RNA: PAGEV RNA
RNA sequence: CCUAUUUUGGAAUCAAGAUGGUUUGGAAUAGGUCAGGACAGUGUUGCCAAUCAAGGAUUUUUGCUAAGGCAACCCAUAAGGCAUUUUUUGUGUAAAGUAGAAGUCGCAAUCUUAUAGCCGUUUUGGUUGCGGAAUUUGAAUUUUAUAAUGCAAAAGGUGGCGCGUUUGGAGCAAGGGCGGAUAUAUUUAUUAUAUCUGGCAACGCGCAGGGCGU
Dot-bracket structure: (((((((..................)))))))..........((((((...........[[......)))))).........((((((((((........................................................)))))))))).((((((.......]]....((((((.......))))))....)))))).......